[Rfam]
RNA sequence: UUUGCAAGUCUGAGGCCACAGCAGAAGCGUUCUCAGGAGGGCAUGUCAGAUUCCAAUGAAUCUGCGAAUUAUGCU
Numbered sequence: 001u002u003u004g005c006a007a008g009u010c011u012g013a014g015g016c017c018a019c020a021g022c023a024g025a026a027g028c029g030u031u032c033u034c035a036g037g038a039g040g041g042c043a044u045g046u047c048a049g050a051u052u053c054c055a056a057u058g059a060a061u062c063u064g065c066g067a068a069u070u071a072u073g074c075u
Stems, first nucleotide, its partner, number of pairs: 014042001016040002020075004025070002028037001047064007
Source information:
This 75-nucleotide RNA from Crocodylus porosus belongs to the Rfam family "Mammalian CPEB3 ribozyme". The organism belongs to Crocodylus, within Eukaryota.